Annotation:
This 545-nucleotide sequence from a Micromonosporaceae bacterium belongs to the Rfam family "Saccharopolyspora sRNA 350". Taxonomically the source falls in Micromonosporaceae (Bacteria, Actinomycetota, Actinomycetes, Micromonosporales). For this family Rfam cites "Prediction and characterization of small non-coding RNAs related to secondary metabolites in Saccharopolyspora erythraea" (Liu et al., PLoS One, 2013). Rfam classes the family as an antisense RNA. Rfam 15.1 lists 1,170 matches to the family in 705 species. The match comes from Rfam's covariance-model search (105 bits).
[Rfam]
RNA sequence: UGGAUGCCGUGCUCCCACUGGCCGUCCGGCUCGACCAGCGCGUGCUCACCGAAGUAGUCGCCGUCGGCCAGCCGGCCGAGCACGGACCGGUCACCGUACGGGCCGGUCCCGAUCCGGUUGACCUUGCCGUGGACGAUCAGGAAGAGUUGGUCGGCCGGGUGGCCGGGCUCCACGAUCGGCUCGCCGGCCGCGUACUGGCGGGGGACGAACCGCUGCGCCAGUGCCGCCAGCACGGCGUCGUCGGGGAAGUCGCGCAGCAGCGGCAGCUCCCGCAGCUCCUGCGGGAUCACCUGCAGGUCGGCUCCGGCACCGGCACCAACUUCGGUUCCGGUUCCGGUUCCGGUUCCGGUGAAGGUCACCCGGCCGUCGCCGACGACGUACCGCAGCCGCCGGUUAACCCGGUACGCACCGGCGGGCACCUGCACCCACGGCAGCAUCCGGAGCAGCCACCGCGAGCUGACCUCCUGCAUCAUCGGGCGGGACUUCGUGGUGGUCGUGAGCUUCCUCGCCGCCCGGGUGCCCAGGCUGUGCGGGUGAUCCUCGGU
Numbered sequence: 001u002g003g004a005u006g007c008c009g010u011g012c013u014c015c016c017a018c019u020g021g022c023c024g025u026c027c028g029g030c031u032c033g034a035c036c037a038g039c040g041c042g043u044g045c046u047c048a049c050c051g052a053a054g055u056a057g058u059c060g061c062c063g064u065c066g067g068c069c070a071g072c073c074g075g076c077c078g079a080g081c082a083c084g085g086a087c088c089g090g091u092c093a094c095c096g097u098a099c100g101g102g103c104c105g106g107u108c109c110c111g112a113u114c115c116g117g118u119u120g121a122c123c124u125u126g127c128c129g130u131g132g133a134c135g136a137u138c139a140g141g142a143a144g145a146g147u148u149g150g151u152c153g154g155c156c157g158g159g160u161g162g163c164c165g166g167g168c169u170c171c172a173c174g175a176u177c178g179g180c181u182c183g184c185c186g187g188c189c190g191c192g193u194a195c196u197g198g199c200g201g202g203g204g205a206c207g208a209a210c211c212g213c214u215g216c217g218c219c220a221g222u223g224c225c226g227c228c229a230g231c232a233c234g235g236c237g238u239c240g241u242c243g244g245g246g247a248a249g250u251c252g253c254g255c256a257g258c259a260g261c262g263g264c265a266g267c268u269c270c271c272g273c274a275g276c277u278c279c280u281g282c283g284g285g286a287u288c289a290c291c292u293g294c295a296g297g298u299c300g301g302c303u304c305c306g307g308c309a310c311c312g313g314c315a316c317c318a319a320c321u322u323c324g325g326u327u328c329c330g331g332u333u334c335c336g337g338u339u340c341c342g343g344u345u346c347c348g349g350u351g352a353a354g355g356u357c358a359c360c361c362g363g364c365c366g367u368c369g370c371c372g373a374c375g376a377c378g379u380a381c382c383g384c385a386g387c388c389g390c391c392g393g394u395u396a397a398c399c400c401g402g403u404a405c406g407c408a409c410c411g412g413c414g415g416g417c418a419c420c421u422g423c424a425c426c427c428a429c430g431g432c433a434g435c436a437u438c439c440g441g442a443g444c445a446g447c448c449a450c451c452g453c454g455a456g457c458u459g460a461c462c463u464c465c466u467g468c469a470u471c472a473u474c475g476g477g478c479g480g481g482a483c484u485u486c487g488u489g490g491u492g493g494u495c496g497u498g499a500g501c502u503u504c505c506u507c508g509c510c511g512c513c514c515g516g517g518u519g520c521c522c523a524g525g526c527u528g529u530g531c532g533g534g535u536g537a538u539c540c541u542c543g544g545u
Stems, first nucleotide, its partner, number of pairs: 003426001005424003009420001010418003015363001019358005025352002035349002038346001040344002048338004054233002058229001060227002063224002065111003075103001077102001080099001082097004117222004122217001126213002129210002132206001134204001143196002150191001153189006160178002164174002234332001236330002240326006250318001252316001254314001258312001262308001365378004387415007398406001427467002430464002435459002439454002443451001474511003479506004484500005513544002516539003521534002524531001